[Rfam]
RNA sequence: GGUUGGGCUGUGAUGAUGCUAUUUUUGUGGACUAGAGUUUCUGAUCCGUGGCCAUUCAUUUGCGCCAGUAGUUGAAGACUAACCCUUGGCUGUCUGAGCUCAACC
Numbered sequence: 001g002g003u004u005g006g007g008c009u010g011u012g013a014u015g016a017u018g019c020u021a022u023u024u025u026u027g028u029g030g031a032c033u034a035g036a037g038u039u040u041c042u043g044a045u046c047c048g049u050g051g052c053c054a055u056u057c058a059u060u061u062g063c064g065c066c067a068g069u070a071g072u073u074g075a076a077g078a079c080u081a082a083c084c085c086u087u088g089g090c091u092g093u094c095u096g097a098g099c100u101c102a103a104c105c
Base pairs, nucleotide, nucleotide: 001105002104003103004102005101006100007099008098038077039076040075041074045070046068049067050066051065052064
Small nucleolar RNA Z157/R69/R10: a 105-nucleotide RNA sequence from Musa balbisiana.
Pairs were carried over by alignment from the consensus structure, which was predicted with PFOLD.
The literature on the family includes a 2003 paper in Nucleic Acids Res by Chen et al., "The high diversity of snoRNAs in plants: identification and comparative study of 120 snoRNA genes from Oryza sativa".
Lineage of the source: Eukaryota > Streptophytina > Magnoliopsida > Petrosaviidae > Musa.
Rfam links the family to the GO terms RNA processing and nucleolus.